[Rfam]
RNA sequence: UGGGAGAAUCUGUAAAGCUCAGGAGGGAUAGCGCCUAAGCUAUUUCUUUCUUUCUUUUUUGCAGAAAUAUCAUCUGCGGCGCUAUCUAUCCUGAGUUUCAUGGGUUCUUCCU
Numbered sequence: 001u002g003g004g005a006g007a008a009u010c011u012g013u014a015a016a017g018c019u020c021a022g023g024a025g026g027g028a029u030a031g032c033g034c035c036u037a038a039g040c041u042a043u044u045u046c047u048u049u050c051u052u053u054c055u056u057u058u059u060u061g062c063a064g065a066a067a068u069a070u071c072a073u074c075u076g077c078g079g080c081g082c083u084a085u086c087u088a089u090c091c092u093g094a095g096u097u098u099c100a101u102g103g104g105u106u107c108u109u110c111c112u
Stems, first nucleotide, its partner, number of pairs: 010103001016097009026087010